Annotation
This 95-nucleotide RNA from Aotus nancymaae belongs to the Rfam family "Y RNA". It scores 46 bits against the family's covariance model. It is annotated as a non-coding RNA gene.
[Rfam]
RNA sequence: GGCUAGUUCAAGUUCAGUGGUGUUUAAAACUAACUGAUCACAGCCACAUACUGAUUUCUUUCUCUACUCCCACUGCUUCACUUGACCAGCCAAAA
Numbered sequence: 001g002g003c004u005a006g007u008u009c010a011a012g013u014u015c016a017g018u019g020g021u022g023u024u025u026a027a028a029a030c031u032a033a034c035u036g037a038u039c040a041c042a043g044c045c046a047c048a049u050a051c052u053g054a055u056u057u058c059u060u061u062c063u064c065u066a067c068u069c070c071c072a073c074u075g076c077u078u079c080a081c082u083u084g085a086c087c088a089g090c091c092a093a094a095a
Base pairs, nucleotide, nucleotide: 001091002090003089004088006086007085008084010083011082016074017073018072019071020070022069028057029056033052
Dot-bracket structure: ((((.(((.((....(((((.(.....((...(..................)...))...........)))))).......))))).))))....

Taxonomically the source falls in Aotus (Eukaryota, Metazoa, Theria, Boreoeutheria).